RNA sequence: GCCCCGUGGUUGCUGGGCUCUGCUUGCCCGUGCAGAGCUGCAGUUGUGAGGAUGGGCCCACAGUGACUCUGUGAUGUACGCGGGGAGUCUGUGAUCCCUGAGCAGCCUCCACAGCCCGCUCACAGGCACAGCC
Numbered sequence: 001g002c003c004c005c006g007u008g009g010u011u012g013c014u015g016g017g018c019u020c021u022g023c024u025u026g027c028c029c030g031u032g033c034a035g036a037g038c039u040g041c042a043g044u045u046g047u048g049a050g051g052a053u054g055g056g057c058c059c060a061c062a063g064u065g066a067c068u069c070u071g072u073g074a075u076g077u078a079c080g081c082g083g084g085g086a087g088u089c090u091g092u093g094a095u096c097c098c099u100g101a102g103c104a105g106c107c108u109c110c111a112c113a114g115c116c117c118g119c120u121c122a123c124a125g126g127c128a129c130a131g132c133c
Stems, first nucleotide, its partner, number of pairs: 001058001003056002007049001010046001012044004017039001019036005069125001071123004080115002082112001084110002087107001089105004